Overview:
The family of this 147-nucleotide RNA sequence from Eutrema salsugineum is "Small nucleolar RNA U19". Rfam classes the family as an H/ACA-box small nucleolar RNA.

[Rfam]
RNA sequence: UUUUGGCUUAGUUAGGAGGCAAAAAUCAAUCAGAUCAUCAAUACUUUUCUGUAUUGCUUUUGAUCGUUUUGACUUCGGCUUUUUUUCUUGAGGAGGAGCUUUCUGUUUUCUUAAUUCAAGCUUCUUCCCAAAAAGCUUCAGACAUAA
Numbered sequence: 001u002u003u004u005g006g007c008u009u010a011g012u013u014a015g016g017a018g019g020c021a022a023a024a025a026u027c028a029a030u031c032a033g034a035u036c037a038u039c040a041a042u043a044c045u046u047u048u049c050u051g052u053a054u055u056g057c058u059u060u061u062g063a064u065c066g067u068u069u070u071g072a073c074u075u076c077g078g079c080u081u082u083u084u085u086u087c088u089u090g091a092g093g094a095g096g097a098g099c100u101u102u103c104u105g106u107u108u109u110c111u112u113a114a115u116u117c118a119a120g121c122u123u124c125u126u127c128c129c130a131a132a133a134a135g136c137u138u139c140a141g142a143c144a145u146a147a
Base pairs, nucleotide, nucleotide: 004021005020007018008017009016033065034064035063036062037061041058042056043055045053074141075140077138078137080135084132085131086130090128092127093126094125095124096123097122098121099120100119
Annotation:
The source organism's lineage runs through Eukaryota, Streptophytina, Gunneridae, rosids and Eutrema. The family has 3 seed sequences and 421 matches in Rfam 15.1. The base pairs follow the family's consensus structure, which was predicted with WAR.